[Rfam]
RNA sequence: UUUUUAUUAGAUGAUGAUUGUCACGUGUUAUGUUCUGAUUAGUUGGAUGUCACAACAUGACACGUGACCGUCAACAUUA
Numbered sequence: 001u002u003u004u005u006a007u008u009a010g011a012u013g014a015u016g017a018u019u020g021u022c023a024c025g026u027g028u029u030a031u032g033u034u035c036u037g038a039u040u041a042g043u044u045g046g047a048u049g050u051c052a053c054a055a056c057a058u059g060a061c062a063c064g065u066g067a068c069c070g071u072c073a074a075c076a077u078u079a
Stems, first nucleotide, its partner, number of pairs: 020068004025063002029059003033055002036052001038050002
The family of this 79-nucleotide RNA from Glycine soja is "MIR1520 microRNA precursor family". It scores 68 bits against the family's covariance model. The base pairs follow the family's consensus structure, which was predicted with RNAalifold.